Background:
Lysine riboswitch aptamer: a 168-nucleotide RNA sequence from Alkalibacterium sp. 20. Rfam describes the family as follows. Riboswitches are metabolite binding domains within certain messenger RNAs that serve as precision sensors for their corresponding targets. The family's consensus secondary structure is taken from published work.

RNA sequence: AUAAAAGAUAGAGGCGCAAAGAAAAAGAGUACUGUUUGGAGGCAUGACAGCCGAUAAAAAACAGGGAAGGGUUCUUUGCCGAAGGAAGGUGAGCGUCAUCUCACUUGUCCUGGUCAUACGUUUAACAAGCGUAUGACUGUCACGCUUGCGUGGAGCACUAUCCUUAAU
Numbered sequence: 001a002u003a004a005a006a007g008a009u010a011g012a013g014g015c016g017c018a019a020a021g022a023a024a025a026a027g028a029g030u031a032c033u034g035u036u037u038g039g040a041g042g043c044a045u046g047a048c049a050g051c052c053g054a055u056a057a058a059a060a061a062c063a064g065g066g067a068a069g070g071g072u073u074c075u076u077u078g079c080c081g082a083a084g085g086a087a088g089g090u091g092a093g094c095g096u097c098a099u100c101u102c103a104c105u106u107g108u109c110c111u112g113g114u115c116a117u118a119c120g121u122u123u124a125a126c127a128a129g130c131g132u133a134u135g136a137c138u139g140u141c142a143c144g145c146u147u148g149c150g151u152g153g154a155g156c157a158c159u160a161u162c163c164u165u166a167a168u
Base pairs, nucleotide, nucleotide: 007162008161009160010159011158016079017078018077019076020075021074022073023072032064033063034062035061036060037059083111084110085109086108087106088105089104090103091102092101093100112138113137114136115135116134117133118132119131120130121129122128140153141152142151143150144149